[Rfam]
RNA sequence: CUCCAUAGUUCAAAGCUAGCCUGGUUAGUGUAUUGGGACAACUUCUCAGCCAUGGAAGAGGGUGUACUUGCUUACUGGUAGCACCGUCACCAUUGAACUGUAAUUAGAUUCUCACUUGGCACAAACAACAUUU
Numbered sequence: 001c002u003c004c005a006u007a008g009u010u011c012a013a014a015g016c017u018a019g020c021c022u023g024g025u026u027a028g029u030g031u032a033u034u035g036g037g038a039c040a041a042c043u044u045c046u047c048a049g050c051c052a053u054g055g056a057a058g059a060g061g062g063u064g065u066a067c068u069u070g071c072u073u074a075c076u077g078g079u080a081g082c083a084c085c086g087u088c089a090c091c092a093u094u095g096a097a098c099u100g101u102a103a104u105u106a107g108a109u110u111c112u113c114a115c116u117u118g119g120c121a122c123a124a125a126c127a128a129c130a131u132u133u
Stems, first nucleotide, its partner, number of pairs: 002056005015042001017041001019039001021036005069130002072127001076123002078120002080117002084107001086105001091100002

This 133-nucleotide sequence from Mus spicilegus belongs to the Rfam family "Small nucleolar RNA SNORA24".
Taxonomically the source falls in Mus (Eukaryota, Opisthokonta, Chordata, Sarcopterygii).
Pairs were carried over by alignment from the consensus structure, which was predicted with RNAfold.
Gene Ontology terms of the family: nucleolus and RNA processing.
ACA24 is a member of the H/ACA class of snoRNA that guide the sites of modification of uridines to pseudouridines.